The family of this 134-nucleotide RNA from Pseudomonas sp. HAR-UPW-AIA-41 is "Pseudomonas sRNA P11". The family's consensus secondary structure was predicted with RNAalifold. The organism belongs to Pseudomonas, within Bacteria. Rfam classes the family as a non-coding RNA gene. The literature on the family includes a 2006 paper in Nucleic Acids Res by Livny et al., "Identification of 17 Pseudomonas aeruginosa sRNAs and prediction of sRNA-encoding genes in 10 diverse pathogens using the bioinformatic tool sRNAPredict2".
RNA sequence: CACACGACAACUUGGCACGCCAUCUGCUUAAUGACCAGCAACACACAUAGCGCACGGUCUUUCAACGGUGAAAGACGGGCGGCCCGGCUGAACGGGAUCAGGACAAAGGCGUCCUCGCAUAACUGCGGGACGCC
Numbered sequence: 001c002a003c004a005c006g007a008c009a010a011c012u013u014g015g016c017a018c019g020c021c022a023u024c025u026g027c028u029u030a031a032u033g034a035c036c037a038g039c040a041a042c043a044c045a046c047a048u049a050g051c052g053c054a055c056g057g058u059c060u061u062u063c064a065a066c067g068g069u070g071a072a073a074g075a076c077g078g079g080c081g082g083c084c085c086g087g088c089u090g091a092a093c094g095g096g097a098u099c100a101g102g103a104c105a106a107a108g109g110c111g112u113c114c115u116c117g118c119a120u121a122a123c124u125g126c127g128g129g130a131c132g133c134c
Stems, first nucleotide, its partner, number of pairs: 012106003015027003052080002055077002059074002062071002083096004108134007116127004